RNA sequence: UUGCACAUUCAAGUCCUGCUAUGUCUUGAAUGAUUGAAACGGGAGGGGUAGAUGAAUUCUCUCUAAAACCUGAAGUAUUGGCUUAAUAUUACUUGCUUCGGAUCCUGUUGGGAGAAACAAUU
Numbered sequence: 001u002u003g004c005a006c007a008u009u010c011a012a013g014u015c016c017u018g019c020u021a022u023g024u025c026u027u028g029a030a031u032g033a034u035u036g037a038a039a040c041g042g043g044a045g046g047g048g049u050a051g052a053u054g055a056a057u058u059c060u061c062u063c064u065a066a067a068a069c070c071u072g073a074a075g076u077a078u079u080g081g082c083u084u085a086a087u088a089u090u091a092c093u094u095g096c097u098u099c100g101g102a103u104c105c106u107g108u109u110g111g112g113a114g115a116a117a118c119a120a121u122u
Base pairs, nucleotide, nucleotide: 002050003049004048006046008044009043010042014038016036017033057116059114060113061112062111063110070101071100072099073098074097075096076095080092084091085090

The record is a 122-nucleotide RNA sequence from Labeo rohita, which matches "Small nucleolar RNA SNORA26" in Rfam. The match comes from Rfam's covariance-model search (55 bits). Pairs were carried over by alignment from the consensus structure, which was predicted with RNAalifold. The family is grouped with related families in Rfam's "SNORA27 clan". Its family is annotated with RNA processing and nucleolus in the Gene Ontology. The snoRNA HBI-6 belong to the H/ACA family of snoRNAs, guiding the pseudouridylation of position U4522 if the 28S rRNA. HBI-6 is the human orthologue of mouse MBI-6 snoRNA.